mir-574 microRNA precursor family: an 81-nucleotide RNA sequence from Cnephaeus nilssonii. The literature on the family includes a 2010 paper in Anim Genet by Nielsen et al., "MicroRNA identity and abundance in porcine skeletal muscles determined by deep sequencing". Lineage of the source: Eukaryota > Metazoa > Gnathostomata > Laurasiatheria > Cnephaeus.
RNA sequence: AGGGCUGAAGAGAGAGGCAGAGUCUGAUCUGCAGCCUCCGUGGCAGCUGUUGAUCAGCCGUUGCCUUUCUUUUUCUCUCUG
Dot-bracket structure: .......(((((((((((((.(.((((((..((((..........))))..)))))).).)))))))))))))........
Numbered sequence: 001a002g003g004g005c006u007g008a009a010g011a012g013a014g015a016g017g018c019a020g021a022g023u024c025u026g027a028u029c030u031g032c033a034g035c036c037u038c039c040g041u042g043g044c045a046g047c048u049g050u051u052g053a054u055c056a057g058c059c060g061u062u063g064c065c066u067u068u069c070u071u072u073u074u075c076u077c078u079c080u081g
Stems, first nucleotide, its partner, number of pairs: 008073013022059001024057006032049004

About this RNA:
The match comes from Rfam's covariance-model search (92 bits). Clan: mir-574 microRNA precursor clan.